[Rfam]
RNA sequence: ACAAUAGCUUAAUAAAACUCAAGGGUGGUAUGGCAUCAUCUCCAUUUGAGGGGAGGUGGUGCUUAUGACAGUUUUUCAAUCGUUAGUUUUGAUGAUUAGUUUUGCUAGUCUAAUUGUAGCGAUCCUGUCUUUUUACGAAAAAAAAUAAUCCACCCUUGAGCUGAACAGGCCAUGGUGGAUUAUUUUUGCCAUGAUAGCCGUACCCCCUAGAGGGAAAUAAGCUAUUGGUGACCAUAGGUGUUCUCAGCACCUGUG
Numbered sequence: 001a002c003a004a005u006a007g008c009u010u011a012a013u014a015a016a017a018c019u020c021a022a023g024g025g026u027g028g029u030a031u032g033g034c035a036u037c038a039u040c041u042c043c044a045u046u047u048g049a050g051g052g053g054a055g056g057u058g059g060u061g062c063u064u065a066u067g068a069c070a071g072u073u074u075u076u077c078a079a080u081c082g083u084u085a086g087u088u089u090u091g092a093u094g095a096u097u098a099g100u101u102u103u104g105c106u107a108g109u110c111u112a113a114u115u116g117u118a119g120c121g122a123u124c125c126u127g128u129c130u131u132u133u134u135a136c137g138a139a140a141a142a143a144a145a146u147a148a149u150c151c152a153c154c155c156u157u158g159a160g161c162u163g164a165a166c167a168g169g170c171c172a173u174g175g176u177g178g179a180u181u182a183u184u185u186u187u188g189c190c191a192u193g194a195u196a197g198c199c200g201u202a203c204c205c206c207c208u209a210g211a212g213g214g215a216a217a218u219a220a221g222c223u224a225u226u227g228g229u230g231a232c233c234a235u236a237g238g239u240g241u242u243c244u245c246a247g248c249a250c251c252u253g254u255g
Stems, first nucleotide, its partner, number of pairs: 002227004007222003011218001013202002018160008027150003036059003040055004067129005080095003103121004163185003205214002233255010